[Rfam]
RNA sequence: CGCUCAUCCAGAGGGACUGAGGGAACGGCCCAGUGAAGUCCCGGCAACCGCCACGAACCCCCCGCCUGCACCCCGGUGCACGCGGUCGUGGAAAAGGUGCCAAAUCCGACCUGACGCGAGGUACGCGCCGGGACAGAUGAGAG
Numbered sequence: 001c002g003c004u005c006a007u008c009c010a011g012a013g014g015g016a017c018u019g020a021g022g023g024a025a026c027g028g029c030c031c032a033g034u035g036a037a038g039u040c041c042c043g044g045c046a047a048c049c050g051c052c053a054c055g056a057a058c059c060c061c062c063c064g065c066c067u068g069c070a071c072c073c074c075g076g077u078g079c080a081c082g083c084g085g086u087c088g089u090g091g092a093a094a095a096g097g098u099g100c101c102a103a104a105u106c107c108g109a110c111c112u113g114a115c116g117c118g119a120g121g122u123a124c125g126c127g128c129c130g131g132g133a134c135a136g137a138u139g140a141g142a143g
Stems, first nucleotide, its partner, number of pairs: 001143001003141006013042005021031003026108003043101004048097002052091001105135001110132004115127004